[Rfam]
RNA: U11 spliceosomal RNA
Organism: Vicugna pacos
RNA sequence: UAAAAAGUGGCACACGUAGGGCAGCCUGAUUGCUCUGUGUGCGGAAUCACCAUCAAGAGAUUUUGGAGGAAUAAUUUUUUGGCAUUUGGCAGCUGCGGAUCACUGGUCCUGGCACCCCU
Numbered sequence: 001u002a003a004a005a006a007g008u009g010g011c012a013c014a015c016g017u018a019g020g021g022c023a024g025c026c027u028g029a030u031u032g033c034u035c036u037g038u039g040u041g042c043g044g045a046a047u048c049a050c051c052a053u054c055a056a057g058a059g060a061u062u063u064u065g066g067a068g069g070a071a072u073a074a075u076u077u078u079u080u081g082g083c084a085u086u087u088g089g090c091a092g093c094u095g096c097g098g099a100u101c102a103c104u105g106g107u108c109c110u111g112g113c114a115c116c117c118c119u
Stems, first nucleotide, its partner, number of pairs: 001009002013041012042065007088116002092113004098108004
Dot-bracket structure: ((.....))...((((((((((((.....))))))))))))(((((((..........)))))))......................((..((((..((((...)))).)))).))...